RNA sequence: UUCUUAUCCAGAGAGGUGGAGGGACUGGCCCUUUGAUACCUCGGCAGCGUGCAACUUUGCGGCGUGCCAAUUCCAGCAGGCGUAUUGCCUGGAAGAUGAGAA
Numbered sequence: 001u002u003c004u005u006a007u008c009c010a011g012a013g014a015g016g017u018g019g020a021g022g023g024a025c026u027g028g029c030c031c032u033u034u035g036a037u038a039c040c041u042c043g044g045c046a047g048c049g050u051g052c053a054a055c056u057u058u059g060c061g062g063c064g065u066g067c068c069a070a071u072u073c074c075a076g077c078a079g080g081c082g083u084a085u086u087g088c089c090u091g092g093a094a095g096a097u098g099a100g101a102a
Stems, first nucleotide, its partner, number of pairs: 001102008013042005021031003025076004043068004048064002050061004072094001077091006
RNA: SAM riboswitch aptamer (S box leader)
Organism: Paenalkalicoccus suaedae